[Rfam]
RNA sequence: AGAUCACCGGUUCAUCUCGGCGGGUCUCGGCCUAGUAAAAAUAUAUCGUCCUGCUCAGCGAUAAUGUCCUGCAGGCCUGACGGAUACUCAUGGCAAAUUGUGCUAUCUGAUAGCUGGCGAGCUCCCGCUUUACAACUGAUUUC
Numbered sequence: 001a002g003a004u005c006a007c008c009g010g011u012u013c014a015u016c017u018c019g020g021c022g023g024g025u026c027u028c029g030g031c032c033u034a035g036u037a038a039a040a041a042u043a044u045a046u047c048g049u050c051c052u053g054c055u056c057a058g059c060g061a062u063a064a065u066g067u068c069c070u071g072c073a074g075g076c077c078u079g080a081c082g083g084a085u086a087c088u089c090a091u092g093g094c095a096a097a098u099u100g101u102g103c104u105a106u107c108u109g110a111u112a113g114c115u116g117g118c119g120a121g122c123u124c125c126c127g128c129u130u131u132a133c134a135a136c137u138g139a140u141u142u143c
Stems, first nucleotide, its partner, number of pairs: 025112001027110002030107001048077001050075005058067003081102002116141002120137002

The family of this 143-nucleotide sequence is "isrN Hfq binding RNA". For this family Rfam cites "Small RNAs encoded within genetic islands of Salmonella typhimurium show host-induced expression and role in virulence" (Padalon-Brauch et al., Nucleic Acids Res, 2008). A search with the family's covariance model found it, with a score of 103 bits.